[Rfam]
RNA sequence: GCACAGUUUGGAUUUAUGGCAGGCUCAGUCCCAUGGGCCCCUCAUAGUGUGGACUGUGCCAGAGCAACAACCACCCAAAACCAUUGCCUGGCCUCUGUCUCCGUAGGCCGCAGGCACUGAUAUGGGUGGCACAACA
Dot-bracket structure: ((((((((.....((((((..((((.........)).))..))))))....))))))))...........((((((.....((...((((((((..........))))))..))...))....)))))).......
Background
A member of the RNA family "Small nucleolar RNA SNORA42/SNORA80 family" from Ornithorhynchus anatinus, 136 nucleotides long. The match comes from Rfam's covariance-model search (108 bits). A reference for the family is Schattner et al. (2006), "A computational screen for mammalian pseudouridylation guide H/ACA RNAs", RNA. The organism belongs to Ornithorhynchus, within Eukaryota. The base pairs follow the family's consensus structure, which was predicted with RNAalifold. Rfam describes the family as follows. The members of this family belong to the H/ACA class of snoRNAs that guide the sites of modification of uridines to pseudouridines. Human ACA42 (SNORA42) was cloned from HeLa cells by immunoprecipitation with anti-GAR1 antibody.